[Rfam]
RNA: mir-458 microRNA precursor family
RNA sequence: UUGUAGACCCUAGCGCCAUUUUCAGAGCUAUAAGUGGAUAACGUGGUCAUAGCUCUUUAAAUGGUACUGCGGUAUGCAC
Numbered sequence: 001u002u003g004u005a006g007a008c009c010c011u012a013g014c015g016c017c018a019u020u021u022u023c024a025g026a027g028c029u030a031u032a033a034g035u036g037g038a039u040a041a042c043g044u045g046g047u048c049a050u051a052g053c054u055c056u057u058u059a060a061a062u063g064g065u066a067c068u069g070c071g072g073u074a075u076g077c078a079c
Stems, first nucleotide, its partner, number of pairs: 002078003007073003011069003015065007024056008